The record is a 108-nucleotide RNA from Heyndrickxia shackletonii, which matches "SAM riboswitch aptamer (S box leader)" in Rfam. The source organism's lineage runs through Bacteria, Bacillati, Bacilli, Bacillaceae and Heyndrickxia. A search with the family's covariance model found it, with a score of 81 bits.

RNA sequence: UUCUUAUCAAGAGCAGGUGGAGGGACGAGCCCUUUGAAGCCCGGCAACCGAUCUAAUUUGUUUAGACACGGUGCUAAUUCUUGCAGCUAUAAGGCUGAGAGAUAAGAA
Numbered sequence: 001u002u003c004u005u006a007u008c009a010a011g012a013g014c015a016g017g018u019g020g021a022g023g024g025a026c027g028a029g030c031c032c033u034u035u036g037a038a039g040c041c042c043g044g045c046a047a048c049c050g051a052u053c054u055a056a057u058u059u060g061u062u063u064a065g066a067c068a069c070g071g072u073g074c075u076a077a078u079u080c081u082u083g084c085a086g087c088u089a090u091a092a093g094g095c096u097g098a099g100a101g102a103u104a105a106g107a108a
Stems, first nucleotide, its partner, number of pairs: 001108008013042001016041003022032003026083004043075004048071002052066003079100001084097005
Dot-bracket structure: ((((((((....(..(((...(((.[[[[)))......))))((((.((..(((.........)))...))))))...(]]]](((((....)))))..)))))))))